[Rfam]
RNA sequence: ACAAUCCUUGGCUUGGGGAGCAUAAUGUUCAAUGAGCGAUAAGUGAGAGCAUUGAUGCUGACACCAAUAAACAAUUAAUCGCGCCCACCUCGGGCAUAGUUCUGAGGCAGUGGUGCAAUUUUUGAACGU
Numbered sequence: 001a002c003a004a005u006c007c008u009u010g011g012c013u014u015g016g017g018g019a020g021c022a023u024a025a026u027g028u029u030c031a032a033u034g035a036g037c038g039a040u041a042a043g044u045g046a047g048a049g050c051a052u053u054g055a056u057g058c059u060g061a062c063a064c065c066a067a068u069a070a071a072c073a074a075u076u077a078a079u080c081g082c083g084c085c086c087a088c089c090u091c092g093g094g095c096a097u098a099g100u101u102c103u104g105a106g107g108c109a110g111u112g113g114u115g116c117a118a119u120u121u122u123u124g125a126a127c128g129u
Stems, first nucleotide, its partner, number of pairs: 005019005020058004024053007036044002081116005086110001089106006